[Rfam]
RNA: Small nucleolar RNA SNORD25
RNA sequence: GACAAUGGUGAUGAGCCUUACAGACCUGUAAUGAUUUGCGAAUAUGAUCGCAAGUUUUAAUGAACAUCUAAGGGACUGAGUUGUU
Numbered sequence: 001g002a003c004a005a006u007g008g009u010g011a012u013g014a015g016c017c018u019u020a021c022a023g024a025c026c027u028g029u030a031a032u033g034a035u036u037u038g039c040g041a042a043u044a045u046g047a048u049c050g051c052a053a054g055u056u057u058u059a060a061u062g063a064a065c066a067u068c069u070a071a072g073g074g075a076c077u078g079a080g081u082u083g084u085u
Stems, first nucleotide, its partner, number of pairs: 002084005